MIR2275 microRNA precursor family: a 90-nucleotide RNA from Acer yangbiense. The organism belongs to Acer, within Eukaryota. Gene Ontology terms of the family: miRNA-mediated post-transcriptional gene silencing and RISC complex.

RNA sequence: AAGUUUGAUGUGAGAAUUGGAGGAAACUAAAUAAAUUGGUACAAUUUAGUUGUUUUUAUUUGGUUUUCUCCAAUAUCUCAUCUCUGACUU
Numbered sequence: 001a002a003g004u005u006u007g008a009u010g011u012g013a014g015a016a017u018u019g020g021a022g023g024a025a026a027c028u029a030a031a032u033a034a035a036u037u038g039g040u041a042c043a044a045u046u047u048a049g050u051u052g053u054u055u056u057u058a059u060u061u062g063g064u065u066u067u068c069u070c071c072a073a074u075a076u077c078u079c080a081u082c083u084c085u086g087a088c089u090u
Stems, first nucleotide, its partner, number of pairs: 004087002007084002011080004016074006023067008032058002